[Rfam]
RNA: azaaromatic riboswitch aptamer (yjdF RNA)
Organism: Sinanaerobacter chloroacetimidivorans
RNA sequence: CUUUGCAAAGAUAAAAACACAGUUCCGGUUGGUAGUCCGGACGCAGCAGAAGCUGUCAGUAACCUGCCUCCUUGGUUGUCCCUUCUUUGUUCAUGUAUA
Numbered sequence: 001c002u003u004u005g006c007a008a009a010g011a012u013a014a015a016a017a018c019a020c021a022g023u024u025c026c027g028g029u030u031g032g033u034a035g036u037c038c039g040g041a042c043g044c045a046g047c048a049g050a051a052g053c054u055g056u057c058a059g060u061a062a063c064c065u066g067c068c069u070c071c072u073u074g075g076u077u078g079u080c081c082c083u084u085c086u087u088u089g090u091u092c093a094u095g096u097a098u099a
Stems, first nucleotide, its partner, number of pairs: 005090007022042002025040004043056005066076003